[Rfam]
RNA: MIR7502 microRNA precursor family
Organism: Gossypium mustelinum
RNA sequence: UGUUAAAAAUUCCGUCCAGUUGUACGGUUAAAAACUGGCAUGGUUGAUAGAAUAAUUAGACAGUAACAUGCAGUAUGCCACAUGUAUCUUAUGCUGACGUAUAGAGACCAAUUCUUAAUAGCAAAAAGACUGAGAUUUUUAAUA
Numbered sequence: 001u002g003u004u005a006a007a008a009a010u011u012c013c014g015u016c017c018a019g020u021u022g023u024a025c026g027g028u029u030a031a032a033a034a035c036u037g038g039c040a041u042g043g044u045u046g047a048u049a050g051a052a053u054a055a056u057u058a059g060a061c062a063g064u065a066a067c068a069u070g071c072a073g074u075a076u077g078c079c080a081c082a083u084g085u086a087u088c089u090u091a092u093g094c095u096g097a098c099g100u101a102u103a104g105a106g107a108c109c110a111a112u113u114c115u116u117a118a119u120a121g122c123a124a125a126a127a128g129a130c131u132g133a134g135a136u137u138u139u140u141a142a143u144a
Stems, first nucleotide, its partner, number of pairs: 002143009011133002014130003020126002023123001025121001028118004033113001